[Rfam]
Shown here is a 73-nucleotide RNA from [Eubacterium] infirmum, a member of the family "tRNA". Pairs were carried over by alignment from the consensus structure, which is taken from published work. By type it is a transfer RNA.
RNA sequence: GUCCCAGUAGCUCAGUGGAUAGAGCGUCGGUUUCCUAAACCGUGCGUCGGGUGUUCGAAUCGCCUCUGGGACA
Numbered sequence: 001g002u003c004c005c006a007g008u009a010g011c012u013c014a015g016u017g018g019a020u021a022g023a024g025c026g027u028c029g030g031u032u033u034c035c036u037a038a039a040c041c042g043u044g045c046g047u048c049g050g051g052u053g054u055u056c057g058a059a060u061c062g063c064c065u066c067u068g069g070g071a072c073a
Base pairs, nucleotide, nucleotide: 001072002071003070004069005068006067007066010025011024012023013022028042029041030040031039049065050064051063052062053061